A member of the RNA family "Bacteroidete tryptophan peptide leader RNA", 126 nucleotides long. By type it is a cis-regulatory leader. Gene Ontology terms of the family: regulation of gene expression and S-adenosylmethionine metabolic process.

RNA sequence: UUACACUUCAAAACAAACAAAUGAACACAAUUUUAAAUCAUACUUGGUGGUGGAACUUCAAGAUUUCAAUCUUCGUGAAGUAAACCCUUAGUAUAUUUAAUUUAAAAUAUUUAAAAAAGGCUUGUC
Numbered sequence: 001u002u003a004c005a006c007u008u009c010a011a012a013a014c015a016a017a018c019a020a021a022u023g024a025a026c027a028c029a030a031u032u033u034u035a036a037a038u039c040a041u042a043c044u045u046g047g048u049g050g051u052g053g054a055a056c057u058u059c060a061a062g063a064u065u066u067c068a069a070u071c072u073u074c075g076u077g078a079a080g081u082a083a084a085c086c087c088u089u090a091g092u093a094u095a096u097u098u099a100a101u102u103u104a105a106a107a108u109a110u111u112u113a114a115a116a117a118a119g120g121c122u123u124g125u126c
Base pairs, nucleotide, nucleotide: 036098037097040094041093042092043091044090046088047087049085055081057079058078059077060073062071063070064069